[Rfam]
RNA sequence: UACACAGUGGGCUCCCAAUAAAUGUCUGUUGAAUUGAGAUGCGUUACAUUCAACGGGUAUUUAUUGAGCGCCCACUCUGUA
Numbered sequence: 001u002a003c004a005c006a007g008u009g010g011g012c013u014c015c016c017a018a019u020a021a022a023u024g025u026c027u028g029u030u031g032a033a034u035u036g037a038g039a040u041g042c043g044u045u046a047c048a049u050u051c052a053a054c055g056g057g058u059a060u061u062u063a064u065u066g067a068g069c070g071c072c073c074a075c076u077c078u079g080u081a
Base pairs, nucleotide, nucleotide: 001081002080003079004078007075008074009073010072011071012070014068016066017065018064019063021061022060023059024058025057026056027055028054029053030052031051032050035048036047
Shown here is an 81-nucleotide RNA from Rhinolophus ferrumequinum, a member of the family "mir-95 microRNA precursor family". Gene Ontology terms of the family: RISC complex, cellular response to amino acid stimulus and miRNA-mediated post-transcriptional gene silencing.